[Rfam]
RNA sequence: GAUGCGGGCCGGGCCCCUCUGGCAAGAUCACCCAAUUGGUCUUGUGAUGUCGGACCGCAUCG
Numbered sequence: 001g002a003u004g005c006g007g008g009c010c011g012g013g014c015c016c017c018u019c020u021g022g023c024a025a026g027a028u029c030a031c032c033c034a035a036u037u038g039g040u041c042u043u044g045u046g047a048u049g050u051c052g053g054a055c056c057g058c059a060u061c062g
Stems, first nucleotide, its partner, number of pairs: 006056002009053004022045008
Shown here is a 62-nucleotide RNA from Altererythrobacter ishigakiensis, a member of the family "terC RNA". The family's consensus secondary structure is taken from published work.